[Rfam]
RNA sequence: CGCCUCUCCUCGGGGGGCCGCGCGUCAGCGGCUGAGAGGCGGGUGAACCCGCGACCCGUCGAACCUGAUCCGGGUCAUGCCGGCGAAGGGAAGGAAGCGUGUUUCCGA
Numbered sequence: 001c002g003c004c005u006c007u008c009c010u011c012g013g014g015g016g017g018c019c020g021c022g023c024g025u026c027a028g029c030g031g032c033u034g035a036g037a038g039g040c041g042g043g044u045g046a047a048c049c050c051g052c053g054a055c056c057c058g059u060c061g062a063a064c065c066u067g068a069u070c071c072g073g074g075u076c077a078u079g080c081c082g083g084c085g086a087a088g089g090g091a092a093g094g095a096a097g098c099g100u101g102u103u104u105c106c107g108a
Stems, first nucleotide, its partner, number of pairs: 007095004011058004016052001017032005040051004064089003070083004
RNA: TPP riboswitch aptamer (THI element)